[Rfam]
RNA sequence: UUUAUGGUCUGAUAAUUAAUUGGCCAAAACUGUAGUGAACCUAUGGUUAAAAAUCAAAAAAAUUGCGGGAAACCCCUAAAGGGAUCUUAACCAAGUAAGUAUGGUAACAUAACUUAUGGCACAGGUAAUGACUCGUGGUACGGUAAAAUCAAGAUUUAUUAUUCAAUGGGUAAUCCGCAGCCAAGUACCGAACACUUAUAAGUACCGGUAUGCAGUUAAUCGACUAGAUGGUGGUUGGUGUUAUUACUAUUAAUAAUGCUUAAGGUAUAGUCAAACCCCGCUUGAAAGAAUGCA
Numbered sequence: 001u002u003u004a005u006g007g008u009c010u011g012a013u014a015a016u017u018a019a020u021u022g023g024c025c026a027a028a029a030c031u032g033u034a035g036u037g038a039a040c041c042u043a044u045g046g047u048u049a050a051a052a053a054u055c056a057a058a059a060a061a062a063u064u065g066c067g068g069g070a071a072a073c074c075c076c077u078a079a080a081g082g083g084a085u086c087u088u089a090a091c092c093a094a095g096u097a098a099g100u101a102u103g104g105u106a107a108c109a110u111a112a113c114u115u116a117u118g119g120c121a122c123a124g125g126u127a128a129u130g131a132c133u134c135g136u137g138g139u140a141c142g143g144u145a146a147a148a149u150c151a152a153g154a155u156u157u158a159u160u161a162u163u164c165a166a167u168g169g170g171u172a173a174u175c176c177g178c179a180g181c182c183a184a185g186u187a188c189c190g191a192a193c194a195c196u197u198a199u200a201a202g203u204a205c206c207g208g209u210a211u212g213c214a215g216u217u218a219a220u221c222g223a224c225u226a227g228a229u230g231g232u233g234g235u236u237g238g239u240g241u242u243a244u245u246a247c248u249a250u251u252a253a254u255a256a257u258g259c260u261u262a263a264g265g266u267a268u269a270g271u272c273a274a275a276c277c278c279c280g281c282u283u284g285a286a287a288g289a290a291u292g293c294a
Base pairs, nucleotide, nucleotide: 001023002022004020005019032041052236053235054234055233056232060229064179065178066177067176068175069174074170075169076168180216181215185211186210187209188208194203195202196201220273222272223271224270225269226268238259239258240257241256242255243254244253245252246251279292280291282289283288
Rfam assigns this 294-nucleotide sequence from Ophiocordyceps polyrhachis-furcata to the family "Group I catalytic intron". Taxonomically the source falls in Ophiocordyceps polyrhachis-furcata (Eukaryota, Dikarya, Pezizomycotina, Hypocreales). Rfam 15.1 lists 5,602 matches to the family in 1,395 species. Group I catalytic introns are large self-splicing ribozymes. They catalyse their own excision from mRNA, tRNA and rRNA precursors in a wide range of organisms. It scores 68 bits against the family's covariance model.